[Rfam]
RNA sequence: UUCAGAAAAAGGCAAACCAUUUGAAAAAAUGGGACGCAAAGCUACAGAUCUACAAUACACUCUUAAAUUAGAAAUUUUUCGCACAAUCCUAUGCAUGAAUGACACUAGUUCAACGUAUACAUAGUUCGUGCGAAACUUUUAGGAAUAAUGUAUCAUGAUGGCUGAGCUACCUGG
Numbered sequence: 001u002u003c004a005g006a007a008a009a010a011g012g013c014a015a016a017c018c019a020u021u022u023g024a025a026a027a028a029a030u031g032g033g034a035c036g037c038a039a040a041g042c043u044a045c046a047g048a049u050c051u052a053c054a055a056u057a058c059a060c061u062c063u064u065a066a067a068u069u070a071g072a073a074a075u076u077u078u079u080c081g082c083a084c085a086a087u088c089c090u091a092u093g094c095a096u097g098a099a100u101g102a103c104a105c106u107a108g109u110u111c112a113a114c115g116u117a118u119a120c121a122u123a124g125u126u127c128g129u130g131c132g133a134a135a136c137u138u139u140u141a142g143g144a145a146u147a148a149u150g151u152a153u154c155a156u157g158a159u160g161g162c163u164g165a166g167c168u169a170c171c172u173g174g
Stems, first nucleotide, its partner, number of pairs: 012037002017032006040168004045164003048159003055153004
A member of the RNA family "c-di-GMP-I riboswitch aptamer" from Gottfriedia endophytica, 174 nucleotides long. About the family: GEMM was predicted in a large-scale screen for bacterial structured RNA regulatory elements. Genes associated with GEMM are involved in a diverse array of functions, including chemotaxis regulation, signal transduction, secretion and chitin. NCBI's taxonomy places the organism under Bacteria, Bacillota, Bacilli, Caryophanales, Gottfriedia.